[Rfam]
RNA sequence: CGAGCCGGCCGGGCGGUCGCGACGGGUCCCUCAGGGGAUCCGCCGAGGAACGUCCGGGCUCCACAAGGCAGGGUGGUGGCUAACGGCCACCCGGGGUAACCCGCGGGACAGUGCCACAGAGAACAGACCGCCGGGCGCUUCGGCGCCCGGUAAGGGUGAAACGGUGGUGUAAGAGACCACCAGCGUCCAGGGCGACCUGGACGGCUAGGUAAACCCCACCUGGAGCAAGGUCAAGAUGGGCGUCGGCAACGACGCCCUGCGCUGACGUCUGAGGGCUGCCAGCCCGAGUCAGCGGGUAGACCGCUUGAGGCGGCCGGCAACGGCCGCCCUAGAUGGAUGACCGCCUCCCGCGGCCCGGCAACGGACCGCGGAGACAGAACCCGGCGUACAGGCCGACUCGUCCG
Numbered sequence: 001c002g003a004g005c006c007g008g009c010c011g012g013g014c015g016g017u018c019g020c021g022a023c024g025g026g027u028c029c030c031u032c033a034g035g036g037g038a039u040c041c042g043c044c045g046a047g048g049a050a051c052g053u054c055c056g057g058g059c060u061c062c063a064c065a066a067g068g069c070a071g072g073g074u075g076g077u078g079g080c081u082a083a084c085g086g087c088c089a090c091c092c093g094g095g096g097u098a099a100c101c102c103g104c105g106g107g108a109c110a111g112u113g114c115c116a117c118a119g120a121g122a123a124c125a126g127a128c129c130g131c132c133g134g135g136c137g138c139u140u141c142g143g144c145g146c147c148c149g150g151u152a153a154g155g156g157u158g159a160a161a162c163g164g165u166g167g168u169g170u171a172a173g174a175g176a177c178c179a180c181c182a183g184c185g186u187c188c189a190g191g192g193c194g195a196c197c198u199g200g201a202c203g204g205c206u207a208g209g210u211a212a213a214c215c216c217c218a219c220c221u222g223g224a225g226c227a228a229g230g231u232c233a234a235g236a237u238g239g240g241c242g243u244c245g246g247c248a249a250c251g252a253c254g255c256c257c258u259g260c261g262c263u264g265a266c267g268u269c270u271g272a273g274g275g276c277u278g279c280c281a282g283c284c285c286g287a288g289u290c291a292g293c294g295g296g297u298a299g300a301c302c303g304c305u306u307g308a309g310g311c312g313g314c315c316g317g318c319a320a321c322g323g324c325c326g327c328c329c330u331a332g333a334u335g336g337a338u339g340a341c342c343g344c345c346u347c348c349c350g351c352g353g354c355c356c357g358g359c360a361a362c363g364g365a366c367c368g369c370g371g372a373g374a375c376a377g378a379a380c381c382c383g384g385c386g387u388a389c390a391g392g393c394c395g396a397c398u399c400g401u402c403c404g
Stems, first nucleotide, its partner, number of pairs: 001400004006395005011389001012345007020045002023042006050387003054384005059225004067280003071221005076090005091105001092103004106216002111214002113210003128155002130151009163181006183205001184203008229302004261293006273285004309328008